[Rfam]
RNA: speF leader
RNA sequence: AGCCGGUUGUCCACAUGCCGGUCUCCUCUGAGGCACACCCUCAUUGCCGGCAGUGCGGACGGGUCUCCCCUCCAAGCCAAGGCAGACAAAGCGAACCGAGGUCGGGCUGACCAAGGUUCAUCGCCGCGAGACGGCUUUCGAUGG
Numbered sequence: 001a002g003c004c005g006g007u008u009g010u011c012c013a014c015a016u017g018c019c020g021g022u023c024u025c026c027u028c029u030g031a032g033g034c035a036c037a038c039c040c041u042c043a044u045u046g047c048c049g050g051c052a053g054u055g056c057g058g059a060c061g062g063g064u065c066u067c068c069c070c071u072c073c074a075a076g077c078c079a080a081g082g083c084a085g086a087c088a089a090a091g092c093g094a095a096c097c098g099a100g101g102u103c104g105g106g107c108u109g110a111c112c113a114a115g116g117u118u119c120a121u122c123g124c125c126g127c128g129a130g131a132c133g134g135c136u137u138u139c140g141a142u143g144g
Stems, first nucleotide, its partner, number of pairs: 002022006032048004055127003082092001100112004